This 113-nucleotide RNA sequence from Segatella paludivivens belongs to the Rfam family "Prevotella-2 RNA". NCBI's taxonomy places the organism under Bacteria, Bacteroidia, Prevotellaceae, Segatella, Segatella paludivivens. Rfam's curators put it in the seed alignment.
RNA sequence: UGGAUUUAUUUCCAUUUAGAUAUAUGCUCAUCAUUUAUUGAUGAGAUAAUUUUAAUUAGUCGUGUGUGCUUAUGCUCGUGAGGGUGUCAGUAUACAAAAUUUUAAAGUUGAGU
Numbered sequence: 001u002g003g004a005u006u007u008a009u010u011u012c013c014a015u016u017u018a019g020a021u022a023u024a025u026g027c028u029c030a031u032c033a034u035u036u037a038u039u040g041a042u043g044a045g046a047u048a049a050u051u052u053u054a055a056u057u058a059g060u061c062g063u064g065u066g067u068g069c070u071u072a073u074g075c076u077c078g079u080g081a082g083g084g085u086g087u088c089a090g091u092a093u094a095c096a097a098a099a100u101u102u103u104a105a106a107g108u109u110g111a112g113u
Stems, first nucleotide, its partner, number of pairs: 001014004019053002022050002028046002031044005065094006074085004